DUF805b RNA: a 36-nucleotide RNA from Roseivirga misakiensis. The base pairs follow the family's consensus structure, which is taken from published work. The family's RNA type in Rfam is cis-regulatory element. NCBI's taxonomy places the organism under Bacteria, Bacteroidota, Cytophagales, Roseivirgaceae, Roseivirga.

RNA sequence: AAGGGAGGUGCCGAAAACCCUGAAAUAGAGUAGGUA
Numbered sequence: 001a002a003g004g005g006a007g008g009u010g011c012c013g014a015a016a017a018c019c020c021u022g023a024a025a026u027a028g029a030g031u032a033g034g035u036a
Base pairs, nucleotide, nucleotide: 002021003020004019005018010035011034012033